Description:
FMN riboswitch aptamer (RFN element): a 118-nucleotide RNA sequence from Aerococcus christensenii.
RNA sequence: AUUAAUCUUCGGGGCAGGGUUAAAUUCCCGAUCGGCGGUAAAGUCCGCGAAUCAUGAGAAUGAUUGAGCUAGUGAAAUUCUAGUACCGACUGUAAAGUCAGGAUGGAAGAAGAUAAGA
Numbered sequence: 001a002u003u004a005a006u007c008u009u010c011g012g013g014g015c016a017g018g019g020u021u022a023a024a025u026u027c028c029c030g031a032u033c034g035g036c037g038g039u040a041a042a043g044u045c046c047g048c049g050a051a052u053c054a055u056g057a058g059a060a061u062g063a064u065u066g067a068g069c070u071a072g073u074g075a076a077a078u079u080c081u082a083g084u085a086c087c088g089a090c091u092g093u094a095a096a097g098u099c100a101g102g103a104u105g106g107a108a109g110a111a112g113a114u115a116a117g118a
Stems, first nucleotide, its partner, number of pairs: 003116001005114006017029003031098002033088002035048004043086002051064003068084005090101003
It scores 114 bits against the family's covariance model. The source organism's lineage runs through Bacteria, Bacillota, Lactobacillales, Aerococcaceae and Aerococcus.